Shown here is a 171-nucleotide RNA sequence from Bacillus sp. THAF10, a member of the family "glmS glucosamine-6-phosphate activated ribozyme aptamer". The organism belongs to Bacillus, within Bacteria. Rfam classes the family as a riboswitch. This entry contains a glucosamine-6-phosphate activated ribozyme that is found in the mRNA for GlmS. GlmS is an enzyme that uses fructose-6-phosphate and glutamine to generate glucosamine-6-phosphate.
[Rfam]
RNA sequence: ACAAAACUUAAAGCGCCUGAACUAAGCAACGGACGACACUAUGCUUAGUUGACGAGGAGGAGGUUUAUCGAUCUAUCGGCGGAUGCCUCCCGGUUGCCACUCACAACCGAUACAGUAACAGUUCAAAGCAUAAAGGCAACUUUAUGUACAAAAACUGAUACUAUGAGGACA
Numbered sequence: 001a002c003a004a005a006a007c008u009u010a011a012a013g014c015g016c017c018u019g020a021a022c023u024a025a026g027c028a029a030c031g032g033a034c035g036a037c038a039c040u041a042u043g044c045u046u047a048g049u050u051g052a053c054g055a056g057g058a059g060g061a062g063g064u065u066u067a068u069c070g071a072u073c074u075a076u077c078g079g080c081g082g083a084u085g086c087c088u089c090c091c092g093g094u095u096g097c098c099a100c101u102c103a104c105a106a107c108c109g110a111u112a113c114a115g116u117a118a119c120a121g122u123u124c125a126a127a128g129c130a131u132a133a134a135g136g137c138a139a140c141u142u143u144a145u146g147u148a149c150a151a152a153a154a155c156u157g158a159u160a161c162u163a164u165g166a167g168g169a170c171a
Base pairs, nucleotide, nucleotide: 020050021049022048023047024046025045026044027043028042059090060089061088062087063086068079069078070077071076091109092108093107094106095105096104115161116160117159119157120156121155129146130145131144132143133142134141135140